[Rfam]
RNA: MIR9563 microRNA precursor family
Organism: Brassica oleracea
RNA sequence: GGAAUAUAAGAACCCGUCUCUUUACUUUUAAUUAAAAGAGUUAAGAACGGUCUCUUAAAACUCUUAUUUAAGAACCGGUUCUUAGCUUUUUUAGUUAAAAGUUAAGAGUCAGAUUCUUAUAUUCC
Numbered sequence: 001g002g003a004a005u006a007u008a009a010g011a012a013c014c015c016g017u018c019u020c021u022u023u024a025c026u027u028u029u030a031a032u033u034a035a036a037a038g039a040g041u042u043a044a045g046a047a048c049g050g051u052c053u054c055u056u057a058a059a060a061c062u063c064u065u066a067u068u069u070a071a072g073a074a075c076c077g078g079u080u081c082u083u084a085g086c087u088u089u090u091u092u093a094g095u096u097a098a099a100a101g102u103u104a105a106g107a108g109u110c111a112g113a114u115u116c117u118u119a120u121a122u123u124c125c
Base pairs, nucleotide, nucleotide: 001125002124003123004122005121006120007119008118009117010116011115012114014112016110018108019107020106021105022104024102025101026100027099028098029097030096031095032094033093034092035091036090037089038088039087041085042084043083044082045081046080047079